[Rfam]
RNA sequence: UUAACUCAACUUUGUAUGGAGUUGGAACCUUUGCCUAUGUUUAUCGCUAGGGGCGUUGUUCCAACUGCAUACAAUGAGUUA
Dot-bracket structure: .......(...(((((.(.(((((((((.....(((..((.....))..))).....))))))))).).))))))......
RNA: mir-2807 microRNA precursor family